[Rfam]
RNA: permuted transfer-messenger RNA
RNA sequence: GGCGCUGAACCUCUCAAUGGACUGCGGGCAGACCCGGGGGCAGUACCCGGCGCCUCCACCUCAGCAGCUCGCGAUCUCAUCCAGGUGAGGUCGAUUUCGCCGGACGGUGAAAUGCACGGGCUGCUCAGGCGGGGGCGAAACAGGAUCGAUGGCCGCGAAGAAGUUGUGAAUUGUGCUCGGCAUGAUACCGCCGUUAUCGGGUCAAAACCUAAAUGCAAACGAUAACGUUCGCAUGAACGAAGUGCGCCUCGCGGCGUAA
Number, nucleotide and partner (000 for none) at each position: 001g177002g176003c175004g174005c173006u000007g000008a000009a000010c000011c000012u000013c000014u000015c166016a165017a164018u000019g000020g000021a000022c000023u000024g000025c155026g154027g153028g000029c151030a150031g000032a000033c000034c050035c049036g048037g047038g046039g000040g000041c000042a000043g000044u000045a000046c038047c037048c036049g035050g034051c137052g136053c135054c134055u133056c132057c131058a000059c000060c000061u000062c000063a000064g000065c000066a000067g000068c000069u000070c000071g000072c000073g000074a000075u000076c000077u000078c000079a000080u000081c000082c000083a000084g000085g000086u000087g000088a000089g000090g000091u000092c000093g000094a000095u000096u000097u000098c000099g000100c000101c000102g000103g000104a000105c000106g000107g000108u000109g000110a000111a000112a000113u000114g000115c000116a000117c000118g000119g000120g000121c000122u000123g000124c000125u000126c000127a000128g000129g000130c000131g057132g056133g055134g054135g053136c052137g051138a000139a000140a000141c000142a000143g000144g000145a000146u000147c000148g000149a000150u030151g029152g000153c027154c026155g025156c000157g000158a000159a000160g000161a000162a000163g000164u017165u016166g015167u000168g000169a000170a000171u000172u000173g005174u004175g003176c002177u001178c193179g192180g191181c190182a000183u000184g000185a000186u000187a000188c000189c000190g181191c180192c179193g178194u000195u000196a000197u000198c000199g000200g000201g000202u000203c000204a000205a000206a000207a000208c000209c000210u000211a000212a000213a000214u000215g000216c000217a000218a000219a000220c000221g000222a000223u000224a000225a000226c000227g000228u000229u000230c000231g000232c000233a000234u000235g000236a000237a000238c000239g000240a000241a000242g000243u000244g000245c000246g000247c000248c000249u000250c000251g000252c000253g000254g000255c000256g000257u000258a000259a000